[Rfam]
RNA sequence: AUCCAAGGUGAUUCCGAGGAGCCUACUAAUGCCCUUCUCAGGAAUGCAGCCGCUUGGAAGAAAACUUGGCACGUCUAAGGUCUUCGGGGAGUGAGGGAUACGUAUUUCCUUUGCCUCAUUUUGGCUGCCUACAUGC
Numbered sequence: 001a002u003c004c005a006a007g008g009u010g011a012u013u014c015c016g017a018g019g020a021g022c023c024u025a026c027u028a029a030u031g032c033c034c035u036u037c038u039c040a041g042g043a044a045u046g047c048a049g050c051c052g053c054u055u056g057g058a059a060g061a062a063a064a065c066u067u068g069g070c071a072c073g074u075c076u077a078a079g080g081u082c083u084u085c086g087g088g089g090a091g092u093g094a095g096g097g098a099u100a101c102g103u104a105u106u107u108c109c110u111u112u113g114c115c116u117c118a119u120u121u122u123g124g125c126u127g128c129c130u131a132c133a134u135g136c
Base pairs, nucleotide, nucleotide: 002058003057004056005055006054007053010050013043014042015041016037017036018035019034021032022031069126072124077119079117086109088107089106090105
A member of the RNA family "Small nucleolar RNA SNORA67" from Nannospalax galili, 136 nucleotides long. Rfam describes the family as follows. U67 belongs to the H/ACA class of snoRNAs which are thought to guide the sites of modification of uridines to pseudouridines. It scores 98 bits against the family's covariance model. Rfam links the family to the GO terms nucleolus and RNA processing.